This 63-nucleotide RNA sequence from Mycolicibacterium tusciae belongs to the Rfam family "L31-Actinobacteria ribosomal protein leader". It is one of the family's seed sequences. The source organism's lineage runs through Bacteria, Actinomycetota, Mycobacteriales, Mycobacteriaceae and Mycolicibacterium tusciae.

RNA sequence: UCGGUUCCGGUUCACGCCGACACCUCCUGGUCCCAAGUGGUCCUCGGAGGGGCGACCCGGGCC
Dot-bracket structure: ..(((.((((....((((....(((((..................)))))))))..)))))))
Numbered sequence: 001u002c003g004g005u006u007c008c009g010g011u012u013c014a015c016g017c018c019g020a021c022a023c024c025u026c027c028u029g030g031u032c033c034c035a036a037g038u039g040g041u042c043c044u045c046g047g048a049g050g051g052g053c054g055a056c057c058c059g060g061g062c063c
Stems, first nucleotide, its partner, number of pairs: 003063003007060004015054004023050005